[Rfam]
RNA: Rhodo-rpoB RNA
Organism: Rubellimicrobium roseum
RNA sequence: GGGUCGAGGAGCCGCUCGUGGGAAGGCGGCGCCGGAUGGACCUCCGACAGUCCCCUCUCAUGGGGGUGGGCACCGCGGCCCCGGCGGCGCCCCCC
Dot-bracket structure: (((((.....((((((........))))))........))))).....................((.((.(.(((.........))).).)).))